[Rfam]
RNA sequence: CCCGCCACUAUACCUGUCUUGAAUUCAGUGGCUGGUAUAUUCCAGUGGUGAGCUGAGAGCAGCCCCAGCCCAGGAAGCAGUGCUCUUCUGGCUGUGGGGAGUCCUGUGCCGAAAGGUUGGGAACAAAG
Dot-bracket structure: ....(((((........((.(.(.....)..).))........)))))...............((((.(...((...(((.((..(((.......)))..)).)))..))....)..)))).......